[Rfam]
This 107-nucleotide sequence from Pectobacterium atrosepticum belongs to the Rfam family "Yersinia sRNA 224". The match comes from Rfam's covariance-model search (85 bits). Rfam 15.1 lists 130 matches to the family in 13 species.
RNA sequence: GCGAUUGCUGACAAAGUGAGUCGAGCGGUGAUAAUGGGUAGAUCGUAAAGACGCUGCAAGUACCUCCCUGUAAGCUCGAGCCGCGCCAUCCCUGGCGCGGACGCUUU
Numbered sequence: 001g002c003g004a005u006u007g008c009u010g011a012c013a014a015a016g017u018g019a020g021u022c023g024a025g026c027g028g029u030g031a032u033a034a035u036g037g038g039u040a041g042a043u044c045g046u047a048a049a050g051a052c053g054c055u056g057c058a059a060g061u062a063c064c065u066c067c068c069u070g071u072a073a074g075c076u077c078g079a080g081c082c083g084c085g086c087c088a089u090c091c092c093u094g095g096c097g098c099g100g101a102c103g104c105u106u107u
Base pairs, nucleotide, nucleotide: 013107014106015105016104017103018102021028022027030077031076041066042065045063046062047061052056081100082099083098084097085096086095087094088093
Rfam classes the family as a small RNA. The pairing is the family consensus, mapped onto this sequence.